[Rfam]
RNA sequence: GGAGGUGACUGGAGUCUGGUGGCUUCCCCGGUCUUCAAAACCGGUGACACGUCUCUGAGGCGUGUGGUGGGUUCGAUUCCCAUCCACCUCC
Numbered sequence: 001g002g003a004g005g006u007g008a009c010u011g012g013a014g015u016c017u018g019g020u021g022g023c024u025u026c027c028c029c030g031g032u033c034u035u036c037a038a039a040a041c042c043g044g045u046g047a048c049a050c051g052u053c054u055c056u057g058a059g060g061c062g063u064g065u066g067g068u069g070g071g072u073u074c075g076a077u078u079c080c081c082a083u084c085c086a087c088c089u090c091c
Stems, first nucleotide, its partner, number of pairs: 001091007008083001011026006028044005047065005068082004
A member of the RNA family "Selenocysteine transfer RNA" from Phenylobacterium parvum, 91 nucleotides long. The organism belongs to Phenylobacterium, within Bacteria. The family has 109 seed sequences and 4,211 matches in Rfam 15.1. The literature on the family includes a 2000 paper in FEBS Lett by Mizutani and Goto, "Eukaryotic selenocysteine tRNA has the 9/4 secondary structure". The match comes from Rfam's covariance-model search (78 bits).